[Rfam]
RNA: S10-Clostridia ribosomal protein leader
Organism: Lachnospiraceae bacterium NK3A20
RNA sequence: UGAUAGCAAUGAAGCGAGAGGUUACUGAACCGCUGAAAACGCAGAGAAAUCAGCGUUAAGGCAUUCAGACAACUCCGUGGAGCGAAUGUCUGGGGUGACCCCGUGUGACCUGCGGGAUCCGACCCAACAAUCUGACGACAA
Numbered sequence: 001u002g003a004u005a006g007c008a009a010u011g012a013a014g015c016g017a018g019a020g021g022u023u024a025c026u027g028a029a030c031c032g033c034u035g036a037a038a039a040c041g042c043a044g045a046g047a048a049a050u051c052a053g054c055g056u057u058a059a060g061g062c063a064u065u066c067a068g069a070c071a072a073c074u075c076c077g078u079g080g081a082g083c084g085a086a087u088g089u090c091u092g093g094g095g096u097g098a099c100c101c102c103g104u105g106u107g108a109c110c111u112g113c114g115g116g117a118u119c120c121g122a123c124c125c126a127a128c129a130a131u132c133u134g135a136c137g138a139c140a141a
Stems, first nucleotide, its partner, number of pairs: 014078003018075003025068005087140004093136001